Record summary: Rfam assigns this 181-nucleotide RNA sequence from Flavonifractor sp. An10 to the family "malK-I RNA".
Nucleotides: 181
Base pairs, nucleotide, nucleotide: 007041008040009039010038011037012036014034015033016032017031018030065079066078067077068076070169071168072167073166074165075164080104081103082102083101084100085099086098087097089096090095107133108132109131110130111129112128113127114126115125136162137161138160139159140158141157142156145154146153147152
Number, partner (000 for none) and nucleotide at each position: 001000u002000c003000a004000g005000g006000c007041c008040g009039c010038g011037c012036c013000c014034c015033c016032c017031u018030a019000c020000u021000c022000c023000a024000u025000u026000c027000u028000c029000a030018u031017a032016g033015g034014g035000c036012g037011g038010c039009g040008u041007g042000a043000g044000c045000c046000g047000u048000a049000a050000a051000a052000a053000a054000a055000g056000g057000a058000g059000g060000a061000a062000c063000a064000u065079c066078c067077g068076c069000c070169g071168g072167g073166c074165c075164g076068g077067c078066g079065g080104u081103g082102c083101g084100g085099c086098a087097g088000u089096g090095u091000g092000g093000a094000g095090a096089c097087c098086u099085g100084u101083c102082g103081u104080a105000a106000c107133g108132u109131c110130c111129g112128c113127a114126g115125g116000g117000u118000u119000c120000c121000g122000c123000u124000c125115c126114c127113u128112g129111c130110g131109g132108g133107c134000a135000a136162g137161a138160g139159g140158g141157u142156a143000u144000u145154u146153g147152c148000g149000g150000a151000g152147g153146c154145a155000u156142u157141g158140c159139c160138c161137u162136u163000u164075c165074g166073g167072c168071c169070c170000a171000u172000g173000c174000a175000a176000a177000u178000g179000g180000c181000a
Description: NCBI's taxonomy places the organism under Bacteria, Bacillati, Clostridia, Eubacteriales, Flavonifractor.